Annotation: The record is an 83-nucleotide sequence, which matches "c-di-GMP-II-GAG riboswitch aptamer" in Rfam. Rfam's curators put it in the seed alignment. Its family is annotated with cyclic-di-GMP binding and regulation of gene expression in the Gene Ontology.
[Rfam]
RNA sequence: GCGGGGGUGGGGCGUCGACGCGCGAUCUGUAUCUCGGUCGCCUGGGUCGCGUCGAGCGAAUGGCGAGACCGGACCUCCCCCCG
Numbered sequence: 001g002c003g004g005g006g007g008u009g010g011g012g013c014g015u016c017g018a019c020g021c022g023c024g025a026u027c028u029g030u031a032u033c034u035c036g037g038u039c040g041c042c043u044g045g046g047u048c049g050c051g052u053c054g055a056g057c058g059a060a061u062g063g064c065g066a067g068a069c070c071g072g073a074c075c076u077c078c079c080c081c082c083g
Base pairs, nucleotide, nucleotide: 003081004080005079006078007077009075010074012057013056020052021051022050023049024048025047026046027045036070037069038066039065040064041063042062